RNA sequence: AUCUUAUCAAGAGAAGCAGAGGGAAGUGGCCCUAUGAAGCUUCAGCAACCUCUAACAGUGUUAGAAAGGUGCUAACUCCAGCAAGACAGACAUAUGUCUUGAGAGAUAAGAG
Numbered sequence: 001a002u003c004u005u006a007u008c009a010a011g012a013g014a015a016g017c018a019g020a021g022g023g024a025a026g027u028g029g030c031c032c033u034a035u036g037a038a039g040c041u042u043c044a045g046c047a048a049c050c051u052c053u054a055a056c057a058g059u060g061u062u063a064g065a066a067a068g069g070u071g072c073u074a075a076c077u078c079c080a081g082c083a084a085g086a087c088a089g090a091c092a093u094a095u096g097u098c099u100u101g102a103g104a105g106a107u108a109a110g111a112g
Stems, first nucleotide, its partner, number of pairs: 002111007013043005021032003027080003044073004049069002051065004077104001082101006

Rfam assigns this 112-nucleotide RNA sequence from Lysinibacillus composti to the family "SAM riboswitch aptamer (S box leader)". The source organism's lineage runs through Bacteria, Bacillota, Bacilli, Bacillaceae and Lysinibacillus. Rfam links the family to the GO term regulation of gene expression. The match comes from Rfam's covariance-model search (98 bits). A reference for the family is Grundy and Henkin (1998), "The S box regulon: a new global transcription termination control system for methionine and cysteine biosynthesis genes in gram-positive bacteria", Mol Microbiol.